Rfam assigns this 78-nucleotide sequence from Candidatus Moduliflexus flocculans to the family "c-di-GMP-I-GGC riboswitch aptamer". Its Rfam clan is "c-di-GMP_I riboswitch clan". The source organism's lineage runs through Bacteria, Candidatus Moduliflexota, Candidatus Moduliflexia, Candidatus Moduliflexales and Candidatus Moduliflexus. Rfam 15.1 lists 1,298 matches to the family in 717 species.
RNA sequence: UCUGACAAAGCCAAACCUAUCGUGAGAUAGGGACGGAAAGCCACGGGUCUUCCGAAAAAGAUAGCCGGGUUGCCUGAU
Dot-bracket structure: ...(......((...((((((....))))))..[))..((((.((((((..........))).])))))))..)....
Numbered sequence: 001u002c003u004g005a006c007a008a009a010g011c012c013a014a015a016c017c018u019a020u021c022g023u024g025a026g027a028u029a030g031g032g033a034c035g036g037a038a039a040g041c042c043a044c045g046g047g048u049c050u051u052c053c054g055a056a057a058a059a060g061a062u063a064g065c066c067g068g069g070u071u072g073c074c075u076g077a078u
Stems, first nucleotide, its partner, number of pairs: 004074001011036002016031006034064001039071004044067003047062003